Rfam assigns this 75-nucleotide RNA sequence from Sarcophilus harrisii to the family "mir-30 microRNA precursor family". NCBI's taxonomy places the organism under Eukaryota, Eumetazoa, Vertebrata, Gnathostomata, Sarcophilus. The literature on the family includes a 2001 paper in Science by Lagos-Quintana et al., "Identification of novel genes coding for small expressed RNAs". Rfam describes the family as follows. This family consists of the mammalian microRNA (miRNA) precursor mir-30a. Animal miRNAs are transcribed as ~70nt precursors and subsequently processed by the Dicer enzyme to give a ~22nt product. In this case the mature sequence comes from both the 3' (miR-30) and 5' (mir-97-6) arms of the precursor. The extents of the hairpin precursors are not generally known and are estimated based on hairpin prediction. The products are thought to have regulatory roles through complementarity to mRNA. The involvement of Dicer in miRNA processing suggests a relationship with the phenomenon of RNA interference. miRNAs are numbered based on the sequence of the mature RNA. The base pairs follow the family's consensus structure, which was predicted with PFOLD.
RNA sequence: GUAGUGUGUGUAAACAUCCUACACUCUCAGCUGUGAGCUCAAGGUGGCUGGGAGAGGGCUGUUUACUCCUUCUGC
Numbered sequence: 001g002u003a004g005u006g007u008g009u010g011u012a013a014a015c016a017u018c019c020u021a022c023a024c025u026c027u028c029a030g031c032u033g034u035g036a037g038c039u040c041a042a043g044g045u046g047g048c049u050g051g052g053a054g055a056g057g058g059c060u061g062u063u064u065a066c067u068c069c070u071u072c073u074g075c
Stems, first nucleotide, its partner, number of pairs: 002074003006070001008068001010066007018058003024054009